Rfam assigns this 163-nucleotide RNA sequence from Oikopleura dioica to the family "U1 spliceosomal RNA". Taxonomically the source falls in Oikopleura (Eukaryota, Metazoa, Chordata, Copelata). For this family Rfam cites "Crystal structure of human spliceosomal U1 snRNP at 5.5 A resolution" (Pomeranz Krummel et al., Nature, 2009). The family's consensus secondary structure is taken from published work. The match comes from Rfam's covariance-model search (114 bits). The family has 100 seed sequences and 40,184 matches in Rfam 15.1. By type it is a spliceosomal small nuclear RNA. Its family is annotated with pre-mRNA 5'-splice site binding, mRNA 5'-splice site recognition and U1 snRNP in the Gene Ontology.
RNA sequence: AUACUUACCUGGGCGGAGGGUAACCUCGAUCAAGUAGGGGGUUCCCUCAUGGCGAGGCCGUACCAUUGCACACCGGCGCGGCUGACCUGUGUCUCUUUGCCAAAUCGGUGGAGUGUCCGUCGCAAUUUCUGAUAGUGGGGUUCUGCGUUCGCGCGAACCCCUU
Numbered sequence: 001a002u003a004c005u006u007a008c009c010u011g012g013g014c015g016g017a018g019g020g021u022a023a024c025c026u027c028g029a030u031c032a033a034g035u036a037g038g039g040g041g042u043u044c045c046c047u048c049a050u051g052g053c054g055a056g057g058c059c060g061u062a063c064c065a066u067u068g069c070a071c072a073c074c075g076g077c078g079c080g081g082c083u084g085a086c087c088u089g090u091g092u093c094u095c096u097u098u099g100c101c102a103a104a105u106c107g108g109u110g111g112a113g114u115g116u117c118c119g120u121c122g123c124a125a126u127u128u129c130u131g132a133u134a135g136u137g138g139g140g141u142u143c144u145g146c147g148u149u150c151g152c153g154c155g156a157a158c159c160c161c162u163u
Base pairs, nucleotide, nucleotide: 012121013120014119015118016048017047018046019045020044023042024041025040026039027038049090050089051088052087054086056083057082058081060079061078063076064075093115095113096111097110100107137161138160139159140158142157144155145154146153147152